Overview
The record is a 71-nucleotide RNA sequence from Aspergillus rambellii, which matches "tRNA" in Rfam. Rfam classes the family as a transfer RNA. The match comes from Rfam's covariance-model search (56 bits).

RNA sequence: GCAUCAAUGGUCUAGUGGUAGAAUUCAUCGUUGCCAUCGAUGAGGCCCGCGUUCGAUUCGCGGUUGAUGCA
Numbered sequence: 001g002c003a004u005c006a007a008u009g010g011u012c013u014a015g016u017g018g019u020a021g022a023a024u025u026c027a028u029c030g031u032u033g034c035c036a037u038c039g040a041u042g043a044g045g046c047c048c049g050c051g052u053u054c055g056a057u058u059c060g061c062g063g064u065u066g067a068u069g070c071a
Stems, first nucleotide, its partner, number of pairs: 001070007010024002013021001026042005047063005
Gene Ontology term of the family: triplet codon-amino acid adaptor activity.